[Rfam]
RNA sequence: AUUGCAAGUUCAAGGCCACAGCAGAAGCGCUCAUGGAGCAGCCUGUCAGAUUUCAAUGAAUCUGCAAAUUCUCCU
Numbered sequence: 001a002u003u004g005c006a007a008g009u010u011c012a013a014g015g016c017c018a019c020a021g022c023a024g025a026a027g028c029g030c031u032c033a034u035g036g037a038g039c040a041g042c043c044u045g046u047c048a049g050a051u052u053u054c055a056a057u058g059a060a061u062c063u064g065c066a067a068a069u070u071c072u073c074c075u
Base pairs, nucleotide, nucleotide: 014043015042016041020075021074023072024071025070026069027039028038047064048063049062050061051060052059053058
Rfam assigns this 75-nucleotide RNA from Crocodylus porosus to the family "Mammalian CPEB3 ribozyme". From the family's description: The mammalian CPEB3 ribozyme is a self cleaving RNA located in the second intron of the CPEB3 gene which belongs to a family of genes regulating messenger RNA polyadenylation. This ribozyme is highly conserved and found only in mammals. The CPEB3 ribozyme is structurally and biochemically related to the human hepatitis delta virus (HDV) ribozyme and the HDV ribozyme is proposed to have arisen from the human transcriptome.